The record is a 117-nucleotide sequence from Rhodococcus triatomae, which matches "SAM (S-adenosyl methionine) riboswitch aptamer" in Rfam. The match comes from Rfam's covariance-model search (110 bits). Taxonomically the source falls in Rhodococcus (Bacteria, Actinomycetes, Mycobacteriales, Nocardiaceae). From the family's description: SAM-IV is a mRNA element that regulates gene expression via direct sensing of S-adenosylmethionine (SAM or AdoMet). SAM-IV riboswitches share conserved nucleotide positions with the previously described SAM-I riboswitches sequence analysis and molecular recognition experiments suggest that SAM-I and SAM-IV riboswitches share similar ligand binding sites, but have different scaffolds. The base pairs follow the family's consensus structure, which is taken from published work. Its family is annotated with regulation of gene expression and S-adenosylmethionine metabolic process in the Gene Ontology.
RNA sequence: GGUCAUGAGCGUCAGCAUCGAGCCCCGGCUGGCUGGCCGGCAACCCUCCACCGCGGUGGGGUGCCCCGGGUGAUGACCUGGUUCCCCGAUCACAGGGUCGGGAGACAAGCGCGGAUC
Numbered sequence: 001g002g003u004c005a006u007g008a009g010c011g012u013c014a015g016c017a018u019c020g021a022g023c024c025c026c027g028g029c030u031g032g033c034u035g036g037c038c039g040g041c042a043a044c045c046c047u048c049c050a051c052c053g054c055g056g057u058g059g060g061g062u063g064c065c066c067c068g069g070g071u072g073a074u075g076a077c078c079u080g081g082u083u084c085c086c087c088g089a090u091c092a093c094a095g096g097g098u099c100g101g102g103a104g105a106c107a108a109g110c111g112c113g114g115a116u117c
Stems, first nucleotide, its partner, number of pairs: 001078004009038001011037006021030002039065003044061003048056002081106003085102006